[Rfam]
RNA: Small nucleolar RNA SNORD91 family
Organism: Alligator mississippiensis
RNA sequence: UCAGGAAGCCUGUGAUGUCAUGGCCAUGAUGUCUGAACGUGGCUGAGGGACUCUGUGAACAUGUACCCAUUUGGCGCUGAGGCUUCCAGGAGG
Numbered sequence: 001u002c003a004g005g006a007a008g009c010c011u012g013u014g015a016u017g018u019c020a021u022g023g024c025c026a027u028g029a030u031g032u033c034u035g036a037a038c039g040u041g042g043c044u045g046a047g048g049g050a051c052u053c054u055g056u057g058a059a060c061a062u063g064u065a066c067c068c069a070u071u072u073g074g075c076g077c078u079g080a081g082g083c084u085u086c087c088a089g090g091a092g093g
Stems, first nucleotide, its partner, number of pairs: 004087007
Dot-bracket structure: ...(((((((......................................................................)))))))......